The record is a 161-nucleotide sequence from Mus musculus, which matches "Small nucleolar RNA SNORA81" in Rfam. The family has 28 seed sequences and 1,161 matches in Rfam 15.1. The literature on the family includes a 2005 paper in Nucleic Acids Res by Gu et al., "A novel experimental approach for systematic identification of box H/ACA snoRNAs from eukaryotes". The match comes from Rfam's covariance-model search (63 bits). Rfam classes the family as an H/ACA-box small nucleolar RNA. The organism belongs to Mus, within Eukaryota.

RNA sequence: AUCUUUUUGUUGAGCAGUGUGCCACAGUUACAAAAAUUAGGAGCAUGUCUUGGAUUUUGUAAUACUGAGCACACAAAAGCAGAAAUGGAUACACUGGACCCCAGUGACUGGGUUGGACCUCUCUUCUCGUGUCCAGUGUUUUAAUAUUUGAUAAAAUAUAC
Number, nucleotide and partner (000 for none) at each position: 001a000002u000003c000004u000005u000006u000007u000008u000009g000010u000011u000012g000013a000014g000015c000016a000017g074018u073019g000020u071021g070022c069023c000024a000025c000026a000027g066028u000029u064030a063031c000032a000033a057034a056035a000036a000037u053038u052039a051040g050041g049042a048043g000044c000045a000046u000047g000048u042049c041050u040051u039052g038053g037054a000055u000056u034057u033058u000059g000060u000061a000062a000063u030064a029065c000066u027067g000068a000069g022070c021071a020072c000073a018074c017075a000076a000077a000078a000079g000080c000081a000082g000083a000084a000085a000086u000087g000088g000089a000090u155091a000092c000093a152094c000095u150096g149097g148098a147099c000100c000101c000102c000103a000104g000105u000106g000107a000108c000109u000110g139111g000112g137113u000114u135115g134116g133117a132118c000119c000120u000121c000122u000123c000124u000125u000126c000127u000128c000129g000130u000131g000132u117133c116134c115135a114136g000137u112138g000139u110140u000141u000142u000143a000144a000145u000146a000147u098148u097149u096150g095151a000152u093153a000154a000155a090156a000157u000158a000159u000160a000161c000